[Rfam]
RNA sequence: AAAGUUUGACAGACAAUCGCUGGCGGCUUUGGCCGCGAGAGGAAAGUCCGGGCUCCACAGGGCAGGAUGCUGGAUAACGUCCAGUCAGCGCGAGCUGAAGGAUAGUGCCACAGAAACGGACCGCCGAUGGCCGGCAUGCCGGCACAGGCAAGGGUGGAACCGUGGUGUAAGAGACCACGAGGAGCAUUGGUGACAAUGUUCCUGGUAAACCCCAUCCGGAGCAAGACCUAAGAGGACAUCGCGGCGGCUUUGCCGCUGCAACCCUGGCCCGGGGUAUGUCCGGGUUGGUCGCUUGAGCCGUUCAGCAAUGGACGGCCUAGAUAGAUGAUUGUCGCUUCAAUGGUGGGAGGGUCGUUCCCGUUCGCACCACCGGAAGUACAGAACCCGGCUUAUGGCAAACUUUCCGA
Numbered sequence: 001a002a003a004g005u006u007u008g009a010c011a012g013a014c015a016a017u018c019g020c021u022g023g024c025g026g027c028u029u030u031g032g033c034c035g036c037g038a039g040a041g042g043a044a045a046g047u048c049c050g051g052g053c054u055c056c057a058c059a060g061g062g063c064a065g066g067a068u069g070c071u072g073g074a075u076a077a078c079g080u081c082c083a084g085u086c087a088g089c090g091c092g093a094g095c096u097g098a099a100g101g102a103u104a105g106u107g108c109c110a111c112a113g114a115a116a117c118g119g120a121c122c123g124c125c126g127a128u129g130g131c132c133g134g135c136a137u138g139c140c141g142g143c144a145c146a147g148g149c150a151a152g153g154g155u156g157g158a159a160c161c162g163u164g165g166u167g168u169a170a171g172a173g174a175c176c177a178c179g180a181g182g183a184g185c186a187u188u189g190g191u192g193a194c195a196a197u198g199u200u201c202c203u204g205g206u207a208a209a210c211c212c213c214a215u216c217c218g219g220a221g222c223a224a225g226a227c228c229u230a231a232g233a234g235g236a237c238a239u240c241g242c243g244g245c246g247g248c249u250u251u252g253c254c255g256c257u258g259c260a261a262c263c264c265u266g267g268c269c270c271g272g273g274g275u276a277u278g279u280c281c282g283g284g285u286u287g288g289u290c291g292c293u294u295g296a297g298c299c300g301u302u303c304a305g306c307a308a309u310g311g312a313c314g315g316c317c318u319a320g321a322u323a324g325a326u327g328a329u330u331g332u333c334g335c336u337u338c339a340a341u342g343g344u345g346g347g348a349g350g351g352u353c354g355u356u357c358c359c360g361u362u363c364g365c366a367c368c369a370c371c372g373g374a375a376g377u378a379c380a381g382a383a384c385c386c387g388g389c390u391u392a393u394g395g396c397a398a399a400c401u402u403u404c405c406g407a
Base pairs, nucleotide, nucleotide: 001403002402003401004400005399006398007397008396010394011393012333013332014331015330016329017328018327020039021038023036024035025034026033027032044391045390046389048388049387050386051385052384053221054220055219056218060270061269062268063267065217066216067215068214069213070084071083072082073081074080085099086097087096088095089094100212101211105210106209107206108205109204121153122152123149124148125147128144129143131141161179162178163177164176165175166174181202182201183200184199185198186197187196188195189194225290226289227288228287234281235280236279237278238277239276261275262274263273264272265271297316298315299314300313301312302311303310304309
Dot-bracket structure: ((((((((.(((((((((.((.(((((....))))).))....[[[.[[[[[((((...[[[[.((((((((((.....)))))(((((....)))).)((...(((((...........(((((..((.(.........).))..)))..)).......((((((.......)))))).(((((((((....))))))))).)))..)))))))))))))...((((.....((((((.....................(((((.]]]]))))))))))).....))))......((((((((....))))))))..........)))))))..................................................]]]]]]]].)).))))))))....
The family of this 407-nucleotide RNA sequence from Paenibacillus sp. 32O-W is "Bacterial RNase P class A". Rfam describes the family as follows. Ribonuclease P (RNase P) is a ubiquitous endoribonuclease, found in archaea, bacteria and eukarya as well as chloroplasts and mitochondria. Pairs were carried over by alignment from the consensus structure, which is taken from published work. Rfam classes the family as a ribozyme. Taxonomically the source falls in Paenibacillus (Bacteria, Bacillati, Bacillota, Caryophanales).